[Rfam]
RNA sequence: GGCGGCAUGGCCAAGCGGUAAGGCAGAAGAUUGCAAAUCUUUUAUUCCCCAGUUCGAUUCUGGGUGUCGUCU
Numbered sequence: 001g002g003c004g005g006c007a008u009g010g011c012c013a014a015g016c017g018g019u020a021a022g023g024c025a026g027a028a029g030a031u032u033g034c035a036a037a038u039c040u041u042u043u044a045u046u047c048c049c050c051a052g053u054u055c056g057a058u059u060c061u062g063g064g065u066g067u068c069g070u071c072u
Stems, first nucleotide, its partner, number of pairs: 001071007010024003026042005048064005